Notes:
Rfam assigns this 136-nucleotide sequence from Cairina moschata to the family "Small nucleolar RNA SNORA77". Pairs were carried over by alignment from the consensus structure, which was predicted with RNAalifold. It is annotated as an H/ACA-box small nucleolar RNA.

RNA sequence: GCAGACUCACUCUGUACCGAACUGCAGGCUUCAGUUCAGGUGCUUUUUCUGUCUGCGAGAGCAGUAGUUCACAGGCAUGACAAAUGCCUUCUUUUUUUUUGUAGAAGGCUGUUACAAUUGCUUUUGGGACAUGGCU
Numbered sequence: 001g002c003a004g005a006c007u008c009a010c011u012c013u014g015u016a017c018c019g020a021a022c023u024g025c026a027g028g029c030u031u032c033a034g035u036u037c038a039g040g041u042g043c044u045u046u047u048u049c050u051g052u053c054u055g056c057g058a059g060a061g062c063a064g065u066a067g068u069u070c071a072c073a074g075g076c077a078u079g080a081c082a083a084a085u086g087c088c089u090u091c092u093u094u095u096u097u098u099u100u101g102u103a104g105a106a107g108g109c110u111g112u113u114a115c116a117a118u119u120g121c122u123u124u125u126g127g128g129a130c131a132u133g134g135c136u
Base pairs, nucleotide, nucleotide: 001056002055003054004053005052006051014043015042016041017040018039019037020036022034023033024032069127070126071125073123074122075121076120077118078117082113085111
Taxonomically the source falls in Cairina (Eukaryota, Teleostomi, Sauropsida, Anatinae). Gene Ontology terms of the family: nucleolus and RNA processing. For this family Rfam cites "A computational screen for mammalian pseudouridylation guide H/ACA RNAs" (Schattner et al., RNA, 2006). ACA63 (SNORA77) is a member of the H/ACA class of snoRNAs that guide the sites of modification of uridines to pseudouridines. This snoRNA was identified by computational screening and its expression in mouse experimentally verified by Northern blot and primer extension analysis. ACA63 is proposed to guide the pseudouridylation of 18S rRNA U814.